[Rfam]
RNA sequence: GCCGGCUCUGCUAGUCUCACGGCAACCACGUUGAAAUGACAACGAAAGAAGUUCGCACUCAACUUCAACGGCUUAACGAGUGC
Numbered sequence: 001g002c003c004g005g006c007u008c009u010g011c012u013a014g015u016c017u018c019a020c021g022g023c024a025a026c027c028a029c030g031u032u033g034a035a036a037u038g039a040c041a042a043c044g045a046a047a048g049a050a051g052u053u054c055g056c057a058c059u060c061a062a063c064u065u066c067a068a069c070g071g072c073u074u075a076a077c078g079a080g081u082g083c
Stems, first nucleotide, its partner, number of pairs: 001023004029044005048066004055083006
RNA: Lacto-phage-1 RNA